[Rfam]
RNA sequence: AAGUUUCUUUGAGCCGCACCGCGGAGCUACAAUCGAAGUUCUCGUAACUAAAAUAUAGCUCUGAGGAAGGUCCCUGGAUCUCUGACCGAAAGAGUCGUAGCAUGAACGCUAUUAGCCUCGGCCAUCAUCUCGUAAUGGGAUAGGAUGUCGUAAGACUGAUCCUCGAGAUGGGCAGAGUGAUUGGUCAAAGUAAAGUAAUGUGCAUAUAUUGGGUCGGUUCAUAGCCGAUAACUCAACAGGGCCUUUUUCAAGGAAACA
Dot-bracket structure: ..(((((((((....[[[[..((((((.........((((.....))))........))))))....(((.((((........(((.......)))(((((......))))).(.((((.((...((((.......((((......(((....)))...))))...)))).)).))).).)..................]]]]...(....................).........)))))))....))))))))).